[Rfam]
RNA sequence: GGCAGCGAGCGAAAAAUCACGGUCCGGUUGGUAGUCCGGAUGCGCUGUAAACCCCAUAUCGGCGUCAUAUCCUUCCCCCUCGGGAUGUCCAUCGCUCCGUAAAUCGUUA
Numbered sequence: 001g002g003c004a005g006c007g008a009g010c011g012a013a014a015a016a017u018c019a020c021g022g023u024c025c026g027g028u029u030g031g032u033a034g035u036c037c038g039g040a041u042g043c044g045c046u047g048u049a050a051a052c053c054c055c056a057u058a059u060c061g062g063c064g065u066c067a068u069a070u071c072c073u074u075c076c077c078c079c080u081c082g083g084g085a086u087g088u089c090c091a092u093c094g095c096u097c098c099g100u101a102a103a104u105c106g107u108u109a
Stems, first nucleotide, its partner, number of pairs: 005100002007097005022041006042065006074085004
RNA: azaaromatic riboswitch aptamer (yjdF RNA)
Organism: Paenibacillus contaminans